RNA sequence: CGCCCUGUGAGAUAUGUUUGAUAUUCUUGGUUGUUGAUUUUAAUCGACUAAGAAUCAAACAUAUUAUCAUAGUGCG
Numbered sequence: 001c002g003c004c005c006u007g008u009g010a011g012a013u014a015u016g017u018u019u020g021a022u023a024u025u026c027u028u029g030g031u032u033g034u035u036g037a038u039u040u041u042a043a044u045c046g047a048c049u050a051a052g053a054a055u056c057a058a059a060c061a062u063a064u065u066a067u068c069a070u071a072g073u074g075c076g
Stems, first nucleotide, its partner, number of pairs: 005072005011065012024052002029049005